[Rfam]
The family of this 124-nucleotide RNA sequence from Brassica carinata is "MIR9563 microRNA precursor family". The match comes from Rfam's covariance-model search (115 bits).
RNA sequence: GGAAUAUAAGAAUCUGUCUCUUAAUUUUUAAUUUAAAAAGUUAAGAACCGUUCUUAAAUAAGAGUUUUAAGAGCCGGUUCUUAAUUUUUUUAGUUAAAAGUUAAGAGACGGGUUCUUAUAUUCC
Numbered sequence: 001g002g003a004a005u006a007u008a009a010g011a012a013u014c015u016g017u018c019u020c021u022u023a024a025u026u027u028u029u030a031a032u033u034u035a036a037a038a039a040g041u042u043a044a045g046a047a048c049c050g051u052u053c054u055u056a057a058a059u060a061a062g063a064g065u066u067u068u069a070a071g072a073g074c075c076g077g078u079u080c081u082u083a084a085u086u087u088u089u090u091u092a093g094u095u096a097a098a099a100g101u102u103a104a105g106a107g108a109c110g111g112g113u114u115c116u117u118a119u120a121u122u123c124c
Stems, first nucleotide, its partner, number of pairs: 001124033035090005041084007